[Rfam]
Nucleotides: 110
Base pairs, nucleotide, nucleotide: 001049002048003047004046011042012041013040014039015038016037017036018035019034020033021032022031024080025079026078027077062105063104064103084092085091086090
Number, partner (000 for none) and nucleotide at each position: 001049g002048a003047a004046c005000g006000u007000u008000g009000a010000a011042a012041u013040c014039a015038a016037a017036g018035a019034g020033g021032g022031u023000u024080c025079u026078g027077g028000a029000a030000c031022g032021c033020u034019u035018u036017c037016u038015u039014u040013g041012a042011u043000g044000g045000a046004g047003u048002u049001c050000u051000a052000g053000g054000u055000g056000g057000g058000u059000u060000c061000g062105a063104u064103a065000a066000a067000u068000a069000a070000c071000c072000a073000c074000a075000a076000a077027c078026c079025a080024g081000a082000u083000a084092g085091g086090a087000u088000u089000a090086u091085c092084c093000g094000a095000a096000a097000g098000a099000a100000a101000a102000u103064u104063a105062u106000c107000u108000a109000a110000a